Overview:
A member of the RNA family "Plastid-ycf2 5UTR RNA" from Triticum urartu, 74 nucleotides long. Plastid ycf2 is a non-coding RNA (ncRNA) recognised in plastids. It was found in the prime untranslated region (5UTR) of ycf2 genes, it presents a tRNA-like motif which suggests it can be involved in mRNA maturation, particularly involved in defining the precise 5' end of the transcript. For this family Rfam cites "Retrograde signaling in plants: A critical review focusing on the GUN pathway and beyond" (Richter et al., Plant Commun, 2023).
[Rfam]
RNA sequence: GUGCAUCCAGCGGGAAUUGAACCCGCAAAUUACCAGCUAUGAAUUGGGCGCUUUAACCACUCAGCCAUGAAUGC
Numbered sequence: 001g002u003g004c005a006u007c008c009a010g011c012g013g014g015a016a017u018u019g020a021a022c023c024c025g026c027a028a029a030u031u032a033c034c035a036g037c038u039a040u041g042a043a044u045u046g047g048g049c050g051c052u053u054u055a056a057c058c059a060c061u062c063a064g065c066c067a068u069g070a071a072u073g074c
Stems, first nucleotide, its partner, number of pairs: 003074004008069001010026005039068003044064005050058001